[Rfam]
RNA sequence: GCGUUCCUCACUGGAGAGAGGCGGACCUCUGAGUCCGUCCACCGAAGGGGCAAGCUUCUGGCGAUACGCCGGGUGCCAAUCUCUCAGGUAAAGCGGACAGCGAGGGCAUA
Numbered sequence: 001g002c003g004u005u006c007c008u009c010a011c012u013g014g015a016g017a018g019a020g021g022c023g024g025a026c027c028u029c030u031g032a033g034u035c036c037g038u039c040c041a042c043c044g045a046a047g048g049g050g051c052a053a054g055c056u057u058c059u060g061g062c063g064a065u066a067c068g069c070c071g072g073g074u075g076c077c078a079a080u081c082u083c084u085c086a087g088g089u090a091a092a093g094c095g096g097a098c099a100g101c102g103a104g105g106g107c108a109u110a
Stems, first nucleotide, its partner, number of pairs: 006105004011100003020039007041089003044085002048083003054076002
The family of this 110-nucleotide RNA sequence from Roseateles asaccharophilus is "Glycine riboswitch aptamer". Gene Ontology term of the family: glycine biosynthetic process.